[Rfam]
RNA sequence: UCGGCUCCGGUUCACGCUCCACUCGCAGGGAGUGCGGCGACCCGGCGGCC
Numbered sequence: 001u002c003g004g005c006u007c008c009g010g011u012u013c014a015c016g017c018u019c020c021a022c023u024c025g026c027a028g029g030g031a032g033u034g035c036g037g038c039g040a041c042c043c044g045g046c047g048g049c050c
Base pairs, nucleotide, nucleotide: 003050004049005048007045008044009043010042015039016038017037018036020034021033022032023031
This 50-nucleotide RNA sequence from Nocardioides soli belongs to the Rfam family "L31-Actinobacteria ribosomal protein leader". For this family Rfam cites "Discovery of 20 novel ribosomal leader candidates in bacteria and archaea" (Eckert and Weinberg, BMC Microbiol, 2020). Its Rfam clan is "Ribosomal Protein L31 Leader clan". The family's RNA type in Rfam is cis-regulatory leader. Pairs were carried over by alignment from the consensus structure, which is taken from published work.